[Rfam]
Overview: The record is a 67-nucleotide RNA from Sapajus apella, which matches "Small nucleolar RNA SNORD45" in Rfam. Pairs were carried over by alignment from the consensus structure, which was predicted with PFOLD.
RNA sequence: GGUUAAUGAUGUAAUAUAUUAGCUGAACCCACAGUUGAAGUGAGUUCUAAAAUUACACCAAGACCUU
Dot-bracket structure: ((((.........................................................))))..
Numbered sequence: 001g002g003u004u005a006a007u008g009a010u011g012u013a014a015u016a017u018a019u020u021a022g023c024u025g026a027a028c029c030c031a032c033a034g035u036u037g038a039a040g041u042g043a044g045u046u047c048u049a050a051a052a053u054u055a056c057a058c059c060a061a062g063a064c065c066u067u
Stems, first nucleotide, its partner, number of pairs: 001065004
It is annotated as a C/D-box small nucleolar RNA.
It scores 66 bits against the family's covariance model.